[Rfam]
RNA sequence: CUCACAGAGUUUAUUGGCAUUCUGUCCACCUCCCAUCUCUUGAAAAUCUCUCUUUUCUCUCUGUGGAGGUGGGCAUACUGCCAACCAAGCUCUGUUGG
Numbered sequence: 001c002u003c004a005c006a007g008a009g010u011u012u013a014u015u016g017g018c019a020u021u022c023u024g025u026c027c028a029c030c031u032c033c034c035a036u037c038u039c040u041u042g043a044a045a046a047u048c049u050c051u052c053u054u055u056u057c058u059c060u061c062u063g064u065g066g067a068g069g070u071g072g073g074c075a076u077a078c079u080g081c082c083a084a085c086c087a088a089g090c091u092c093u094g095u096u097g098g
Base pairs, nucleotide, nucleotide: 011088014084015083016082017081018080019079023075024074025073026072027071028070029069030068031067032066033065
Record summary: The record is a 98-nucleotide RNA sequence from Vitis vinifera, which matches "MIR394 microRNA precursor family" in Rfam. Gene Ontology terms of the family: miRNA-mediated post-transcriptional gene silencing and RISC complex. A reference for the family is Jones-Rhoades and Bartel (2004), "Computational identification of plant microRNAs and their targets, including a stress-induced miRNA", Mol Cell. The organism belongs to Vitis, within Eukaryota. It is one of the family's seed sequences.